The record is a 113-nucleotide RNA sequence from Paenibacillus antarcticus, which matches "epsC RNA" in Rfam. A search with the family's covariance model found it, with a score of 97 bits. By type it is a cis-regulatory element. Rfam 15.1 lists 450 matches to the family in 334 species. The family's consensus secondary structure is taken from published work.
[Rfam]
RNA sequence: AGGUCAUGUCUACUAUACCUUUAUCACGGUAGACACUCGAUCAUGCUGUGGGUAUGAAUGUACCUUAGACGAUCAUCGUCGGAAGUGUGGUGUGAGGGUGGGUUUAAUGCCCC
Number, nucleotide and partner (000 for none) at each position: 001a020002g019003g018004u017005c000006a000007u035008g034009u033010c032011u031012a030013c029014u000015a000016u000017a004018c003019c002020u001021u000022u000023a000024u000025c000026a000027c000028g000029g013030u012031a011032g010033a009034c008035a007036c096037u095038c094039g093040a091041u090042c089043a088044u087045g086046c085047u084048g000049u000050g065051g064052g063053u062054a061055u060056g000057a000058a000059u000060g055061u054062a053063c052064c051065u050066u000067a000068g080069a079070c078071g077072a000073u000074c000075a000076u000077c071078g070079u069080c068081g000082g000083a000084a047085g046086u045087g044088u043089g042090g041091u040092g000093u039094g038095a037096g036097g000098g000099u000100g112101g111102g110103u109104u000105u000106a000107a000108u000109g103110c102111c101112c100113c000